[Rfam]
RNA sequence: GCACACAUAGCUCAGUAGGAUAGAGCGACGCUCUCCUAAAGCGUAGGCCGGGGGUUCGAUUCCUCUUGUGUGCA
Numbered sequence: 001g002c003a004c005a006c007a008u009a010g011c012u013c014a015g016u017a018g019g020a021u022a023g024a025g026c027g028a029c030g031c032u033c034u035c036c037u038a039a040a041g042c043g044u045a046g047g048c049c050g051g052g053g054g055u056u057c058g059a060u061u062c063c064u065c066u067u068g069u070g071u072g073c074a
Stems, first nucleotide, its partner, number of pairs: 001073007010026004028044005050066005
Dot-bracket structure: (((((((..((((.........)))).(((((.......))))).....(((((.......)))))))))))).
The record is a 74-nucleotide sequence from Anaerosphaera aminiphila, which matches "tRNA" in Rfam. Gene Ontology term of the family: triplet codon-amino acid adaptor activity. The family's RNA type in Rfam is transfer RNA. The organism belongs to Anaerosphaera aminiphila, within Bacteria. A search with the family's covariance model found it, with a score of 68 bits.